[Rfam]
RNA sequence: UAAGCAAAUCGGAUAGCCGCGGGUAUAUGUUCUAUAUACCUGAGGAAAGUCGGAGCUCCACAGGGCAGGGUGCUGGAUAACGUCCAGUGGGGGCGACCCCAAGGAAAGUGCCACAGAAACAAACCGCCACGGAAGGAUUUAUUCCGUGGUAAGGGUGGAAAGGUGAGGUAAGAGCUCACCAGCGUUUAGGCGACUAAACGGCUAGGUAAACCCCACCCGGAGCAAGACCAAAUAGGGGAACUAGGAAGUGGCCCGCUUCGUUCCCGGGUUAGGUCGCUUGAGGUGUCAGGCAACUGGCAUCCCAGAUAGAUGGCUAUCCUCGACAGAACUCCGCUUACAGAUUUGCUUACUUA
Numbered sequence: 001u002a003a004g005c006a007a008a009u010c011g012g013a014u015a016g017c018c019g020c021g022g023g024u025a026u027a028u029g030u031u032c033u034a035u036a037u038a039c040c041u042g043a044g045g046a047a048a049g050u051c052g053g054a055g056c057u058c059c060a061c062a063g064g065g066c067a068g069g070g071u072g073c074u075g076g077a078u079a080a081c082g083u084c085c086a087g088u089g090g091g092g093g094c095g096a097c098c099c100c101a102a103g104g105a106a107a108g109u110g111c112c113a114c115a116g117a118a119a120c121a122a123a124c125c126g127c128c129a130c131g132g133a134a135g136g137a138u139u140u141a142u143u144c145c146g147u148g149g150u151a152a153g154g155g156u157g158g159a160a161a162g163g164u165g166a167g168g169u170a171a172g173a174g175c176u177c178a179c180c181a182g183c184g185u186u187u188a189g190g191c192g193a194c195u196a197a198a199c200g201g202c203u204a205g206g207u208a209a210a211c212c213c214c215a216c217c218c219g220g221a222g223c224a225a226g227a228c229c230a231a232a233u234a235g236g237g238g239a240a241c242u243a244g245g246a247a248g249u250g251g252c253c254c255g256c257u258u259c260g261u262u263c264c265c266g267g268g269u270u271a272g273g274u275c276g277c278u279u280g281a282g283g284u285g286u287c288a289g290g291c292a293a294c295u296g297g298c299a300u301c302c303c304a305g306a307u308a309g310a311u312g313g314c315u316a317u318c319c320u321c322g323a324c325a326g327a328a329c330u331c332c333g334c335u336u337a338c339a340g341a342u343u344u345g346c347u348u349a350c351u352u353a
Stems, first nucleotide, its partner, number of pairs: 001349010011338001012318007020042009047336003051333005056222004063254004068218005073087005088102001089100004103213002108211002110207003124154002126150009162180006182202001183200007226275004236265006245259005282301008
RNA: Bacterial RNase P class A